[Rfam]
RNA sequence: AAUACAAGAAUGACAAAUCAAAGUUUUUCUCCUGAUUUUCAGCUUUUUUCUCCUAAAAAAAUUCAAUUUCAACUAAAAAUGCUAAAAGUCAGGAGGAAAAAUAUGAUUUGUCAUUCUCCUAUU
Numbered sequence: 001a002a003u004a005c006a007a008g009a010a011u012g013a014c015a016a017a018u019c020a021a022a023g024u025u026u027u028u029c030u031c032c033u034g035a036u037u038u039u040c041a042g043c044u045u046u047u048u049u050c051u052c053c054u055a056a057a058a059a060a061a062u063u064c065a066a067u068u069u070c071a072a073c074u075a076a077a078a079a080u081g082c083u084a085a086a087a088g089u090c091a092g093g094a095g096g097a098a099a100a101a102u103a104u105g106a107u108u109u110g111u112c113a114u115u116c117u118c119c120u121a122u123u
Stems, first nucleotide, its partner, number of pairs: 001123004007117014022102001024100004029095011041083002045079004
Shown here is a 123-nucleotide sequence from Gossypium gossypioides, a member of the family "MIR7504 microRNA precursor family".
The source organism's lineage runs through Eukaryota, Magnoliopsida, Pentapetalae, Malvoideae and Gossypium.